[Rfam]
RNA sequence: GAAAUCCUUCAGGGCAGGGUGUAAUUCCCGACCGGCGGUAAUAGUCCGCGAGCGCAAGCUGACUUGGUGUAAUUCCAAGACCGACAGUAAAGUCUGGAUGAGAGAAGGCAUAA
Numbered sequence: 001g002a003a004a005u006c007c008u009u010c011a012g013g014g015c016a017g018g019g020u021g022u023a024a025u026u027c028c029c030g031a032c033c034g035g036c037g038g039u040a041a042u043a044g045u046c047c048g049c050g051a052g053c054g055c056a057a058g059c060u061g062a063c064u065u066g067g068u069g070u071a072a073u074u075c076c077a078a079g080a081c082c083g084a085c086a087g088u089a090a091a092g093u094c095u096g097g098a099u100g101a102g103a104g105a106a107g108g109c110a111u112a113a
Stems, first nucleotide, its partner, number of pairs: 003111001006108005017029003031093002033083002035049004044081002052059002063079005085096003

Rfam assigns this 113-nucleotide RNA sequence from Vallitalea pronyensis to the family "FMN riboswitch aptamer (RFN element)". A search with the family's covariance model found it, with a score of 118 bits. The RFN element is a highly conserved domain that is found frequently in the 5'-untranslated regions of prokaryotic mRNAs that encode for flavin mononucleotide (FMN) biosynthesis and transport proteins.